[Rfam]
RNA sequence: GGCGGGGUAGCUCAGCUGGUUAGAGCACGGGAAUCAUAAUCCUGGGGUCGGGGGUUCAAGUCCCUCUCCCGCUA
Numbered sequence: 001g002g003c004g005g006g007g008u009a010g011c012u013c014a015g016c017u018g019g020u021u022a023g024a025g026c027a028c029g030g031g032a033a034u035c036a037u038a039a040u041c042c043u044g045g046g047g048u049c050g051g052g053g054g055u056u057c058a059a060g061u062c063c064c065u066c067u068c069c070c071g072c073u074a
Stems, first nucleotide, its partner, number of pairs: 001073007010026004028044005050066005
RNA: tRNA